[Rfam]
RNA sequence: UUGCGUUCUGCUAAUCGGUGAAGCCGUGUCGCAGAUGGUUUAAACCACAGUUUUUUUCGGGAUACCCGAUGAAAGGUGAGCA
Number, nucleotide and partner (000 for none) at each position: 001u000002u082003g081004c080005g000006u000007u035008c034009u033010g032011c031012u000013a000014a000015u000016c026017g025018g024019u023020g000021a000022a000023g019024c018025c017026g016027u000028g000029u000030c000031g011032c010033a009034g008035a007036u000037g046038g045039u044040u000041u000042a000043a000044a039045c038046c037047a000048c000049a000050g077051u076052u075053u000054u073055u072056u071057u069058c068059g067060g066061g000062a000063u000064a000065c000066c060067c059068g058069a057070u000071g056072a055073a054074a000075g052076g051077u050078g000079a000080g004081c003082a002
Rfam assigns this 82-nucleotide RNA sequence to the family "SucA RNA motif".
The sequence is in the family's curated seed alignment.